[Rfam]
RNA sequence: CCGUUGAAGCGGGGGUACCGCGGCCGGCACGGCGUGGUUGAGAAACACCCUUCGAACCUGAUCCGGCUGAUACCGGCGUAGGGAAGCUUCGCGGGAACCACG
Numbered sequence: 001c002c003g004u005u006g007a008a009g010c011g012g013g014g015g016u017a018c019c020g021c022g023g024c025c026g027g028c029a030c031g032g033c034g035u036g037g038u039u040g041a042g043a044a045a046c047a048c049c050c051u052u053c054g055a056a057c058c059u060g061a062u063c064c065g066g067c068u069g070a071u072a073c074c075g076g077c078g079u080a081g082g083g084a085a086g087c088u089u090c091g092c093g094g095g096a097a098c099c100a101c102g
Stems, first nucleotide, its partner, number of pairs: 006090005011051004016045001017038005057082004063076004
Notes: The record is a 102-nucleotide sequence from Luteimonas sp. MC1825, which matches "TPP riboswitch aptamer (THI element)" in Rfam. The source organism's lineage runs through Bacteria, Pseudomonadati, Gammaproteobacteria, Lysobacterales and Luteimonas. A search with the family's covariance model found it, with a score of 65 bits. Pairs were carried over by alignment from the consensus structure, which is taken from published work.